[Rfam]
RNA sequence: GGUCUUGAGUGUCAGCACGUUGGAAACAACACGGCCCCGGCCAGCUGACCGGCAACCCUCCACUUGCGGUGGGGUGCCCCGGGUGACGACCUGGCCCUGGCCAACUGGUGCAGGGCAAGCGCAACAC
Numbered sequence: 001g002g003u004c005u006u007g008a009g010u011g012u013c014a015g016c017a018c019g020u021u022g023g024a025a026a027c028a029a030c031a032c033g034g035c036c037c038c039g040g041c042c043a044g045c046u047g048a049c050c051g052g053c054a055a056c057c058c059u060c061c062a063c064u065u066g067c068g069g070u071g072g073g074g075u076g077c078c079c080c081g082g083g084u085g086a087c088g089a090c091c092u093g094g095c096c097c098u099g100g101c102c103a104a105c106u107g108g109u110g111c112a113g114g115g116c117a118a119g120c121g122c123a124a125c126a127c
Stems, first nucleotide, its partner, number of pairs: 001091004009050001011049006033042002051078003056074003060069002094116006100109003
A member of the RNA family "SAM (S-adenosyl methionine) riboswitch aptamer" from Ruania alkalisoli, 127 nucleotides long. From the family's description: SAM-IV is a mRNA element that regulates gene expression via direct sensing of S-adenosylmethionine (SAM or AdoMet). Rfam 15.1 lists 2,360 matches to the family in 1,305 species. Pairs were carried over by alignment from the consensus structure, which is taken from published work. Rfam links the family to the GO terms S-adenosylmethionine metabolic process and regulation of gene expression.